This 46-nucleotide RNA from Candidatus Brocadia sinica belongs to the Rfam family "Acido-Lenti-1 RNA". The match comes from Rfam's covariance-model search (46 bits). Rfam 15.1 lists 2,607 matches to the family in 171 species. The family's consensus secondary structure is taken from published work.
RNA sequence: CCCAGGGCUGCCGCCCUGGGCUAUACUCUGCCAGCCCUUCGGUCUU
Numbered sequence: 001c002c003c004a005g006g007g008c009u010g011c012c013g014c015c016c017u018g019g020g021c022u023a024u025a026c027u028c029u030g031c032c033a034g035c036c037c038u039u040c041g042g043u044c045u046u
Stems, first nucleotide, its partner, number of pairs: 001020008033045002036042002